[Rfam]
Record summary:
The family of this 78-nucleotide sequence from Probosciger aterrimus is "mir-23 microRNA precursor family". It scores 61 bits against the family's covariance model. NCBI's taxonomy places the organism under Eukaryota, Metazoa, Chordata, Sauria, Probosciger.

RNA sequence: CACUCACCGGGGUUCCUGGCGAUGCGAUUUUUUACCGUUUCUGCCCAAAAUCACAUUGCCAGGGAUUUCCAACGGGUG
Dot-bracket structure: ((.((....(((((((((((((((.(((((.................))))).)))))))))))))..))...)).))
Numbered sequence: 001c002a003c004u005c006a007c008c009g010g011g012g013u014u015c016c017u018g019g020c021g022a023u024g025c026g027a028u029u030u031u032u033u034a035c036c037g038u039u040u041c042u043g044c045c046c047a048a049a050a051u052c053a054c055a056u057u058g059c060c061a062g063g064g065a066u067u068u069c070c071a072a073c074g075g076g077u078g
Stems, first nucleotide, its partner, number of pairs: 001078002004075002010070002012066013026052005